[Rfam]
Shown here is a 134-nucleotide sequence from Streptomyces piniterrae, a member of the family "Streptomyces RNA 5676". Rfam's curators write: Identified by deep sequencing of transcriptome at the end of exponential growth phase. Appears longer on northern blot than sequencing transcript. This indicates processing step. Streptomyces specific.
RNA sequence: AGAUGAGAAACACCCCGCUCGCAGGGGACUGCGGGCGACGCCCGGUCGGCGCUUCCCCGGCUCCGUCCAGGCUGUGCCCUCGCGCACAACACCGGGCCCCCUUCCAGGGGAUCCGGGAAUCCUCACCGAUCGGA
Numbered sequence: 001a002g003a004u005g006a007g008a009a010a011c012a013c014c015c016c017g018c019u020c021g022c023a024g025g026g027g028a029c030u031g032c033g034g035g036c037g038a039c040g041c042c043c044g045g046u047c048g049g050c051g052c053u054u055c056c057c058c059g060g061c062u063c064c065g066u067c068c069a070g071g072c073u074g075u076g077c078c079c080u081c082g083c084g085c086a087c088a089a090c091a092c093c094g095g096g097c098c099c100c101c102u103u104c105c106a107g108g109g110g111a112u113c114c115g116g117g118a119a120u121c122c123u124c125a126c127c128g129a130u131c132g133g134a
Stems, first nucleotide, its partner, number of pairs: 004125004016037009040072003044068002047065003051061002074087004092116005098110005126133002
For this family Rfam cites "Deep sequencing-based identification of small non-coding RNAs in Streptomyces coelicolor" (Vockenhuber et al., RNA Biol, 2011).